[Rfam]
A member of the RNA family "Bacterial large subunit ribosomal RNA" from Oligella urethralis, 521 nucleotides of a longer RNA.

RNA sequence: GACUAAGUGCACAUGGUGGAUGCCUUGGCGAUCACAGGCGAUGAAGGACGCGAUAGCCUGCGAAAAGCUACGGGGAGUUGGCAAAUAAGCAUUGAUCCGUAGAUAUCCGAAUGGGGAAACCCACUGACGUAAGUCAGUAUCGUAUCGUGAAUUCAUAGCGAUACGAGGCGAACCGAGCGAACUGAAACAUCUAAGUAGCUCGAGGAAAAGAAAUCAACCGAGAUUCCGGCAGUAGUGGCGAGCGACCCCGGAGUAGCCUGGACGAGAUAGUCUAAUGUAUAGUCGAACAGCGUGGAAAAGCUGGCCGUAGUAGGUGAUAGCCCUGUAGACGAAAUGCGUUAGGUGGUACUAAGCGUCAGACAAGUAGAGCGGGACACGUGAAAUCCUGUUUGAAGAUGGGGGGACCAUCCUCCAAGGCUAAAUACUCGUGAUCGACCGAUAGUGAACCAGUACCGUGAGGGAAAGGCGAAAAGAACCCCGGGAGGGGAGUGAAAUAGAACCUGAAACCGUGUGCAUACAAA
Numbered sequence: 001g002a003c004u005a006a007g008u009g010c011a012c013a014u015g016g017u018g019g020a021u022g023c024c025u026u027g028g029c030g031a032u033c034a035c036a037g038g039c040g041a042u043g044a045a046g047g048a049c050g051c052g053a054u055a056g057c058c059u060g061c062g063a064a065a066a067g068c069u070a071c072g073g074g075g076a077g078u079u080g081g082c083a084a085a086u087a088a089g090c091a092u093u094g095a096u097c098c099g100u101a102g103a104u105a106u107c108c109g110a111a112u113g114g115g116g117a118a119a120c121c122c123a124c125u126g127a128c129g130u131a132a133g134u135c136a137g138u139a140u141c142g143u144a145u146c147g148u149g150a151a152u153u154c155a156u157a158g159c160g161a162u163a164c165g166a167g168g169c170g171a172a173c174c175g176a177g178c179g180a181a182c183u184g185a186a187a188c189a190u191c192u193a194a195g196u197a198g199c200u201c202g203a204g205g206a207a208a209a210g211a212a213a214u215c216a217a218c219c220g221a222g223a224u225u226c227c228g229g230c231a232g233u234a235g236u237g238g239c240g241a242g243c244g245a246c247c248c249c250g251g252a253g254u255a256g257c258c259u260g261g262a263c264g265a266g267a268u269a270g271u272c273u274a275a276u277g278u279a280u281a282g283u284c285g286a287a288c289a290g291c292g293u294g295g296a297a298a299a300g301c302u303g304g305c306c307g308u309a310g311u312a313g314g315u316g317a318u319a320g321c322c323c324u325g326u327a328g329a330c331g332a333a334a335u336g337c338g339u340u341a342g343g344u345g346g347u348a349c350u351a352a353g354c355g356u357c358a359g360a361c362a363a364g365u366a367g368a369g370c371g372g373g374a375c376a377c378g379u380g381a382a383a384u385c386c387u388g389u390u391u392g393a394a395g396a397u398g399g400g401g402g403g404a405c406c407a408u409c410c411u412c413c414a415a416g417g418c419u420a421a422a423u424a425c426u427c428g429u430g431a432u433c434g435a436c437c438g439a440u441a442g443u444g445a446a447c448c449a450g451u452a453c454c455g456u457g458a459g460g461g462a463a464a465g466g467c468g469a470a471a472a473g474a475a476c477c478c479c480g481g482g483a484g485g486g487g488a489g490u491g492a493a494a495u496a497g498a499a500c501c502u503g504a505a506a507c508c509g510u511g512u513g514c515a516u517a518c519a520a521a
Stems, first nucleotide, its partner, number of pairs: 007516010022501001023466002027437002029434007036426002038169002046108003049062003068102007077090003113122003123138006140166009173204001174202005184191002214221002224422001225252005235243002255419004263355001268346001270344011282330003288303004306310001312324003367391008398413005453460002476487004

A search with the family's covariance model found it, with a score of 2781 bits. The family's consensus secondary structure is taken from published work.